[Rfam]
A member of the RNA family "Selenocysteine insertion sequence 1" from Fasciola gigantica, 71 nucleotides long.
Its family is annotated with selenocysteine incorporation in the Gene Ontology.
The organism belongs to Fasciola, within Eukaryota.
For this family Rfam cites "A novel RNA structural motif in the selenocysteine insertion element of eukaryotic selenoprotein mRNAs" (Walczak et al., RNA, 1996).
The base pairs follow the family's consensus structure, which is taken from published work.
By type it is a cis-regulatory element.

RNA sequence: UUCCGCGCAAUGACGGAUACAUCCAAAAUCCAUCUACUGGCAAGGAUGUGUCCCGAUGUCCGCGUUCCGAA
Numbered sequence: 001u002u003c004c005g006c007g008c009a010a011u012g013a014c015g016g017a018u019a020c021a022u023c024c025a026a027a028a029u030c031c032a033u034c035u036a037c038u039g040g041c042a043a044g045g046a047u048g049u050g051u052c053c054c055g056a057u058g059u060c061c062g063c064g065u066u067c068c069g070a071a
Stems, first nucleotide, its partner, number of pairs: 001071003005067001015053010030040003
Background
About the family: The incorporation of selenocysteine into a protein sequence is directed by an in-frame UGA codon (usually a stop codon) within the coding region of the mRNA. Selenoprotein mRNAs contain a conserved secondary structure in the 3' UTR that is required for the distinction of UGA stop from UGA selenocysteine. The selenocysteine insertion sequence (SECIS) is around 60 nt in length and adopts a hairpin structure which is sufficiently well-defined and conserved to act as a computational screen for selenoprotein genes.